[Rfam]
RNA sequence: CCAAGAUUAUGGCAAAACCGUUAAAAGGCGGUGACGCAAAGCUACAGGGGCUAAGGGAAACUAUGCCAGCCAGCUACCAAA
Numbered sequence: 001c002c003a004a005g006a007u008u009a010u011g012g013c014a015a016a017a018c019c020g021u022u023a024a025a026a027g028g029c030g031g032u033g034a035c036g037c038a039a040a041g042c043u044a045c046a047g048g049g050g051c052u053a054a055g056g057g058a059a060a061c062u063a064u065g066c067c068a069g070c071c072a073g074c075u076a077c078c079a080a081a
Base pairs, nucleotide, nucleotide: 012037013036017032018031019030020029021028022027040075041074042073043072047071048070049067050066051065056061
A member of the RNA family "c-di-GMP-I riboswitch aptamer" from Paenibacillus sp. yr247, 81 nucleotides long. GEMM was predicted in a large-scale screen for bacterial structured RNA regulatory elements. Genes associated with GEMM are involved in a diverse array of functions, including chemotaxis regulation, signal transduction, secretion and chitin. Rfam 15.1 lists 5,092 matches to the family in 1,772 species. A search with the family's covariance model found it, with a score of 69 bits.